[Rfam]
RNA sequence: GCCCCCGUAGCUCAGCCGGAUAGAGCAGCGGUUUUCUAAACCGCCGGUCGCAGGUUCGAGUCCUGCCGGGGGUA
Number, nucleotide and partner (000 for none) at each position: 001g073002c072003c071004c070005c069006c068007g067008u000009a000010g026011c025012u024013c023014a000015g000016c000017c000018g000019g000020a000021u000022a000023g013024a012025g011026c010027a000028g044029c043030g042031g041032u040033u000034u000035u000036c000037u000038a000039a000040a032041c031042c030043g029044c028045c000046g000047g000048u000049c000050g066051c065052a064053g063054g062055u000056u000057c000058g000059a000060g000061u000062c054063c053064u052065g051066c050067c007068g006069g005070g004071g003072g002073u001074a000

Rfam assigns this 74-nucleotide RNA from Thermogemmata fonticola to the family "tRNA". A search with the family's covariance model found it, with a score of 69 bits.